[Rfam]
RNA sequence: GUCGGGAAGUGGAAGAAAAGAGGGCAUAAGAGCAGUGGGAAUGGGAACAUGGAGGAAAGCCUAACCUGCUCGGUUUUCACCUCUAGUGUUGGAGGCAAGAAUUUAGUUUGGUGUUUCCCAAUGACUCCCAUUCCUAUUGUUCUAAAGCACUCCUUCCUCUUCCUUUUUUGG
Dot-bracket structure: ........(.(((.(((..(((..(.(.((((((.(((((((((((.(((.(.((.((((....................................................))))))).)))..))))))))))).)))))).).)..))).))).))).).........
Numbered sequence: 001g002u003c004g005g006g007a008a009g010u011g012g013a014a015g016a017a018a019a020g021a022g023g024g025c026a027u028a029a030g031a032g033c034a035g036u037g038g039g040a041a042u043g044g045g046a047a048c049a050u051g052g053a054g055g056a057a058a059g060c061c062u063a064a065c066c067u068g069c070u071c072g073g074u075u076u077u078c079a080c081c082u083c084u085a086g087u088g089u090u091g092g093a094g095g096c097a098a099g100a101a102u103u104u105a106g107u108u109u110g111g112u113g114u115u116u117c118c119c120a121a122u123g124a125c126u127c128c129c130a131u132u133c134c135u136a137u138u139g140u141u142c143u144a145a146a147g148c149a150c151u152c153c154u155u156c157c158u159c160u161u162c163c164u165u166u167u168u169u170g171g
Stems, first nucleotide, its partner, number of pairs: 009162001011160003015156003020152003025147001027145001029143006036136011048123003052119001054118002057116004